[Rfam]
RNA sequence: GGCGUCAGCCAGACGAUCGCCGGCGGGCCGCGCGCCUGCCGGAGGAAAGUCCGAACACCACAGGGCAGGGUGCUCCAUAACGUGGAGUCGCGGCAACGCGAAGGAAAGUGCAACAGAGAGCAGACCGCCCCACACCUUUUAUUGGGUGCGGGGUAAGGGUGAAACGGUGCGGUAAGAGCGCACCAGUUCCCCGGGCGACCGGGGAAGCUUGGUAAACCCCACCCGGUGCAAGACCGAAUAGGGGAGCGUUUGAGGGCGGCCCGCCUGAUGCUCCCGGGUAGGUCGCAGGAGGUGCCGGGCAACCGGCAUCCACAGAUGAAUGAUCGUCGUCCCAAACCGGGGCAACCCGGUUUGAGGGAACAGAAUUCGGCUUAUGGACGGCGCCGGCC
Numbered sequence: 001g002g003c004g005u006c007a008g009c010c011a012g013a014c015g016a017u018c019g020c021c022g023g024c025g026g027g028c029c030g031c032g033c034g035c036c037u038g039c040c041g042g043a044g045g046a047a048a049g050u051c052c053g054a055a056c057a058c059c060a061c062a063g064g065g066c067a068g069g070g071u072g073c074u075c076c077a078u079a080a081c082g083u084g085g086a087g088u089c090g091c092g093g094c095a096a097c098g099c100g101a102a103g104g105a106a107a108g109u110g111c112a113a114c115a116g117a118g119a120g121c122a123g124a125c126c127g128c129c130c131c132a133c134a135c136c137u138u139u140u141a142u143u144g145g146g147u148g149c150g151g152g153g154u155a156a157g158g159g160u161g162a163a164a165c166g167g168u169g170c171g172g173u174a175a176g177a178g179c180g181c182a183c184c185a186g187u188u189c190c191c192c193g194g195g196c197g198a199c200c201g202g203g204g205a206a207g208c209u210u211g212g213u214a215a216a217c218c219c220c221a222c223c224c225g226g227u228g229c230a231a232g233a234c235c236g237a238a239u240a241g242g243g244g245a246g247c248g249u250u251u252g253a254g255g256g257c258g259g260c261c262c263g264c265c266u267g268a269u270g271c272u273c274c275c276g277g278g279u280a281g282g283u284c285g286c287a288g289g290a291g292g293u294g295c296c297g298g299g300c301a302a303c304c305g306g307c308a309u310c311c312a313c314a315g316a317u318g319a320a321u322g323a324u325c326g327u328c329g330u331c332c333c334a335a336a337c338c339g340g341g342g343c344a345a346c347c348c349g350g351u352u353u354g355a356g357g358g359a360a361c362a363g364a365a366u367u368c369g370g371c372u373u374a375u376g377g378a379c380g381g382c383g384c385c386g387g388c389c
Stems, first nucleotide, its partner, number of pairs: 001385006008379001010377001011375001012328007020042009047373003051370005056228004063262004068224005073087005088102001089100004103219002108217002110213002125158002127154005133148005166184006186208001187206008232284004242275006254266004291310008
Dot-bracket structure: ((((((.(.(((((((((.(((((((((.....)))))))))....[[[.[[[[[((((...[[[[.((((((((((.....)))))(((((....)))).)((...((((.............(((((((.(((((......))))).)))))..)).......((((((.......)))))).(((((((((....)))))))).)...))..)))))))))))))...((((......((((((......((((.]]]]))))...)))))).....))))......((((((((....))))))))...........))))))).....................................]]]]]]]].).).)))))))....
RNA: Bacterial RNase P class A